[Rfam]
The family of this 308-nucleotide sequence from Ditylenchus dipsaci is "Nuclear RNase P". Lineage of the source: Eukaryota > Eumetazoa > Anguinidae > Anguininae > Ditylenchus. Ribonuclease P (RNase P) is a ubiquitous endoribonuclease, found in archaea, bacteria and eukarya as well as chloroplasts and mitochondria. The literature on the family includes a 1998 paper in Annu Rev Biochem by Frank and Pace, "Ribonuclease P: unity and diversity in a tRNA processing ribozyme".
RNA sequence: UUGGUGGGAAGCUUGCUUUAGGAAUCACAAAAGGUGCUCAGUCACCUCAAUUAUUCCUGGGAAGGUCUGAGAAAAGGCCCCAAUGUGAAGCAAUUCACAUUUGCAUCCUCUAGCCGGGGAACGUUGUAGACUCAACGUGGCACUGUACCAGAAAUUUCGUGUGUGUAGGUUGCCCAUGGGACACGAAGAGCGCUGUGAAGGCAGCGCUUGGAUCUCGCAGCUUGUGCAUAUUUGGACCACAGAGCCGGUGCCAGCCUACUUGAGUGCGAUAGCUAAACUUAACACAAUUCAGACUACUCUCCUGCCAA
Numbered sequence: 001u002u003g004g005u006g007g008g009a010a011g012c013u014u015g016c017u018u019u020a021g022g023a024a025u026c027a028c029a030a031a032a033g034g035u036g037c038u039c040a041g042u043c044a045c046c047u048c049a050a051u052u053a054u055u056c057c058u059g060g061g062a063a064g065g066u067c068u069g070a071g072a073a074a075a076g077g078c079c080c081c082a083a084u085g086u087g088a089a090g091c092a093a094u095u096c097a098c099a100u101u102u103g104c105a106u107c108c109u110c111u112a113g114c115c116g117g118g119g120a121a122c123g124u125u126g127u128a129g130a131c132u133c134a135a136c137g138u139g140g141c142a143c144u145g146u147a148c149c150a151g152a153a154a155u156u157u158c159g160u161g162u163g164u165g166u167a168g169g170u171u172g173c174c175c176a177u178g179g180g181a182c183a184c185g186a187a188g189a190g191c192g193c194u195g196u197g198a199a200g201g202c203a204g205c206g207c208u209u210g211g212a213u214c215u216c217g218c219a220g221c222u223u224g225u226g227c228a229u230a231u232u233u234g235g236a237c238c239a240c241a242g243a244g245c246c247g248g249u250g251c252c253a254g255c256c257u258a259c260u261u262g263a264g265u266g267c268g269a270u271a272g273c274u275a276a277a278c279u280u281a282a283c284a285c286a287a288u289u290c291a292g293a294c295u296a297c298u299c300u301c302c303u304g305c306c307a308a
Stems, first nucleotide, its partner, number of pairs: 001308004007302003013276003017272002020058005032047005067292005079250001106120005121138006139246003143242003159231005